Shown here is a 76-nucleotide RNA from Gambusia affinis, a member of the family "U1A polyadenylation inhibition element (PIE)". Lineage of the source: Eukaryota > Vertebrata > Teleostomi > Clupeocephala > Gambusia. For this family Rfam cites "Global and Local Dynamics of the U1A Polyadenylation Inhibition Element (PIE) RNA and PIE RNA-U1A Complexes" (Clerte and Hall, Biochemistry, 2004). This family represents the U1A polyadenylation inhibition element (PIE). Its family is annotated with regulation of mRNA polyadenylation in the Gene Ontology. Pairs were carried over by alignment from the consensus structure, which is taken from published work. The family's RNA type in Rfam is cis-regulatory element. Rfam 15.1 lists 510 matches to the family in 331 species.
RNA sequence: UGUUAAGGCAUUGCACCCAGAGUCUGGGCCACCAGACAUUGUACCUGGAGCUUUUUCUUUUUUAUUAAAACAGGUG
Numbered sequence: 001u002g003u004u005a006a007g008g009c010a011u012u013g014c015a016c017c018c019a020g021a022g023u024c025u026g027g028g029c030c031a032c033c034a035g036a037c038a039u040u041g042u043a044c045c046u047g048g049a050g051c052u053u054u055u056u057c058u059u060u061u062u063u064a065u066u067a068a069a070a071c072a073g074g075u076g
Stems, first nucleotide, its partner, number of pairs: 005054005017048004022037005
Dot-bracket structure: ....(((((.......((((.(((((......))))).......)))).)))))......................